Source information
The record is a 105-nucleotide RNA from Pseudomonas syringae group genomosp. 3, which matches "Pseudomonas rnk leader" in Rfam. Lineage of the source: Bacteria > Pseudomonadati > Gammaproteobacteria > Pseudomonas > Pseudomonas syringae pv. tomato. It is one of the family's seed sequences. It is annotated as a cis-regulatory leader. On this family, see Naville and Gautheret, Genome Biol 2010: "Premature terminator analysis sheds light on a hidden world of bacterial transcriptional attenuation".
RNA sequence: CGGGUCGGGUUGUGUAUUUGUUGCGCUGUGUUAGUGUCAGACCCUGCUUCUCCAGAUCGAGAAGCCCGUAAAACCCCGCCUGCCCCGGCGGGGUUUUGUUUUAUU
Number, nucleotide and partner (000 for none) at each position: 001c000002g052003g051004g050005u000006c000007g000008g000009g000010u000011u000012g000013u000014g000015u000016a000017u000018u034019u033020g032021u000022u030023g029024c000025g000026c000027u000028g000029u023030g022031u000032u020033a019034g018035u000036g000037u000038c000039a000040g000041a000042c000043c000044c000045u000046g000047c000048u000049u000050c004051u003052c002053c000054a000055g000056a000057u000058c000059g000060a000061g000062a000063a000064g000065c000066c000067c000068g000069u000070a097071a096072a095073a094074c093075c092076c091077c090078g089079c088080c087081u000082g000083c000084c000085c000086c000087g080088g079089c078090g077091g076092g075093g074094u073095u072096u071097u070098g000099u000100u000101u000102u000103a000104u000105u000